[Rfam]
RNA sequence: GGCCAUGACGAUGACGGCGCAAGCAGGUCAUCAUCAUACCUCCCUGUUGGACUAUGGCCGAGCUUAGAGCUCGGCCUUUUUU
Numbered sequence: 001g002g003c004c005a006u007g008a009c010g011a012u013g014a015c016g017g018c019g020c021a022a023g024c025a026g027g028u029c030a031u032c033a034u035c036a037u038a039c040c041u042c043c044c045u046g047u048u049g050g051a052c053u054a055u056g057g058c059c060g061a062g063c064u065u066a067g068a069g070c071u072c073g074g075c076c077u078u079u080u081u082u
Base pairs, nucleotide, nucleotide: 008037010035011034012033013032014031056076057075058074059073060072061071062070063069
The family of this 82-nucleotide sequence from Roseovarius bejariae is "Singlet oxygen resistance RNA X". Pairs were carried over by alignment from the consensus structure. The match comes from Rfam's covariance-model search (47 bits). For this family Rfam cites "Photooxidative stress-induced and abundant small RNAs in Rhodobacter sphaeroides" (Berghoff et al., Mol Microbiol, 2009). Rfam links the family to the GO term response to photooxidative stress. SorX (RSs2461)like SorY is a singlet oxygen induced sRNA that counteracts oxidative stress by targeting mRNA for a transporter in Rhodobacter. Rfam classes the family as a small RNA. NCBI's taxonomy places the organism under Bacteria, Pseudomonadati, Rhodobacterales, Roseobacteraceae, Roseovarius.